Pseudomonas rnk leader: a 102-nucleotide RNA sequence from Pseudomonas japonica.
RNA sequence: CGGUGGGCCCUUGAGUAUUUACCCUGCUGUGGUAGUGUCAGCCCAUCCCGGCCAAUGCCGAACUUUCAAAAACCCCGCCCUUGGGCGGGGUUUUGCUUUAUU
Numbered sequence: 001c002g003g004u005g006g007g008c009c010c011u012u013g014a015g016u017a018u019u020u021a022c023c024c025u026g027c028u029g030u031g032g033u034a035g036u037g038u039c040a041g042c043c044c045a046u047c048c049c050g051g052c053c054a055a056u057g058c059c060g061a062a063c064u065u066u067c068a069a070a071a072a073c074c075c076c077g078c079c080c081u082u083g084g085g086c087g088g089g090g091u092u093u094u095g096c097u098u099u100a101u102u
Stems, first nucleotide, its partner, number of pairs: 002052001004050003019035005069094011
Taxonomically the source falls in Pseudomonas (Bacteria, Pseudomonadati, Pseudomonadota, Pseudomonadales).